[Rfam]
RNA sequence: GUGUGCAGCGAGCUUCUUUACAGUGUUGCCUUGUAAGUUGGCGAUCAAGCAGCAUUGUACAGGGCUAUCACUGCAUGC
Number, nucleotide and partner (000 for none) at each position: 001g000002u000003g000004u000005g000006c000007a000008g000009c000010g000011a000012g000013c000014u064015u063016c062017u061018u000019u059020a058021c057022a056023g055024u054025g053026u052027u051028g050029c000030c049031u048032u047033g046034u000035a000036a000037g000038u000039u000040g000041g000042c000043g000044a000045u000046c033047a032048a031049g030050c028051a027052g026053c025054a024055u023056u022057g021058u020059a019060c000061a017062g016063g015064g014065c000066u000067a000068u000069c000070a000071c000072u000073g000074c000075a000076u000077g000078c000
RNA: mir-103/107 microRNA precursor family
Organism: Parambassis ranga